Shown here is an 82-nucleotide RNA sequence from Papaver nudicaule, a member of the family "Small nucleolar RNA R160". By type it is a C/D-box small nucleolar RNA. The base pairs follow the family's consensus structure. Rfam's curators write: snoR160 is a C/D box small nucleolar RNA, which acts as a methylation guide for 25S ribosomal RNA in plants. snoR160 has been alternatively named snoZ270 in rice. Gene Ontology terms of the family: nucleolus and RNA processing.
RNA sequence: AGCAAAAUGAUGAAAUUAUGUAGCUGAAAUUUAGUGUUGAAUCAAAUACAAACCUUAUGGUCUUCAAAGUUCUCUGAUUGCU
Number, nucleotide and partner (000 for none) at each position: 001a082002g081003c080004a079005a078006a000007a000008u000009g000010a000011u000012g000013a000014a000015a000016u000017u000018a000019u000020g000021u000022a000023g000024c000025u000026g000027a000028a000029a000030u000031u000032u000033a000034g000035u000036g000037u000038u000039g000040a000041a000042u000043c000044a000045a000046a000047u000048a000049c000050a000051a000052a000053c000054c000055u000056u000057a000058u000059g000060g000061u000062c000063u000064u000065c000066a000067a000068a000069g000070u000071u000072c000073u000074c000075u000076g000077a000078u005079u004080g003081c002082u001